[Rfam]
RNA sequence: CCGUGCUAGCCGGGGAGGUAGCGGCACCCUUUUUCUGCAAUCCGCUAUAGCAGAGGUGAUGGUCUUGUUUCGGGUUGUCUUCUGUAGAGCUGCCCUCUACAAGUGGCGUUGAUAUCUGGGUCUCACGCAAUAGGAAUCCACGAACCGUGUCAGGUUGGGAACAAAGCAGCACUAAGUGGAACCUUCUAUGUGCCGUGAGGGUGCCUGGGUUGAGUUAACUAUAGAGGUAACGUCUGUGGAAGGCGACACAAGGCAGGCCGCACGG
Numbered sequence: 001c002c003g004u005g006c007u008a009g010c011c012g013g014g015g016a017g018g019u020a021g022c023g024g025c026a027c028c029c030u031u032u033u034u035c036u037g038c039a040a041u042c043c044g045c046u047a048u049a050g051c052a053g054a055g056g057u058g059a060u061g062g063u064c065u066u067g068u069u070u071c072g073g074g075u076u077g078u079c080u081u082c083u084g085u086a087g088a089g090c091u092g093c094c095c096u097c098u099a100c101a102a103g104u105g106g107c108g109u110u111g112a113u114a115u116c117u118g119g120g121u122c123u124c125a126c127g128c129a130a131u132a133g134g135a136a137u138c139c140a141c142g143a144a145c146c147g148u149g150u151c152a153g154g155u156u157g158g159g160a161a162c163a164a165a166g167c168a169g170c171a172c173u174a175a176g177u178g179g180a181a182c183c184u185u186c187u188a189u190g191u192g193c194c195g196u197g198a199g200g201g202u203g204c205c206u207g208g209g210u211u212g213a214g215u216u217a218a219c220u221a222u223a224g225a226g227g228u229a230a231c232g233u234c235u236g237u238g239g240a241a242g243g244c245g246a247c248a249c250a251a252g253g254c255a256g257g258c259c260g261c262a263c264g265g
Base pairs, nucleotide, nucleotide: 001265002264003263004262005261006260009057010056011055012030013029014028015027017025019023034054035053036052037051038050064257065256066255067254068253069252074247075246076245077244079242080241081240082239083238084237085236086235087234088233091229092228095226096225097224098223099222103219104218105216106215107214114210115209116208117207118206119205120204121203122199123198124197125196126195127194128190129189131188132187133186134185135184137180138179139178140177141176147172148171149170150169155164156163157162

Record summary: Bacterial large signal recognition particle RNA: a 265-nucleotide RNA sequence from Firmicutes bacterium AF12-30. Lineage of the source: Bacteria > Bacillati > Bacillota. From the family's description: The signal recognition particle (SRP) is a universally conserved ribonucleoprotein involved in the co-translational targeting of proteins to membranes.